[Rfam]
RNA sequence: GUAAUGUUUCUUGCUCAAAUGAGUAUUCCAAUCACAGUUGCAUUUGCAUAUACAUGAUAUAUAUUCACACUCAUAAAACCAAAAAACAAAACACAACAUGGGUCUGUAUUAAUGUCCCAUGUUUUACCAUAUGUUUGGUUUUAUGAUGCAUUUGCUUCUGUUUUUCUGAGAUGCUCAUUUAAGCAAGCAAUGUUAA
Dot-bracket structure: ...(((((.((((((.(((((((((((.((........................................................................................................................................)).))))))))))).)))))).)))))...
The family of this 196-nucleotide RNA from Gossypium armourianum is "MIR828 microRNA precursor family".
The family's consensus secondary structure was predicted with RNAalifold.
Rfam links the family to the GO terms RISC complex and miRNA-mediated post-transcriptional gene silencing.
The match comes from Rfam's covariance-model search (90 bits).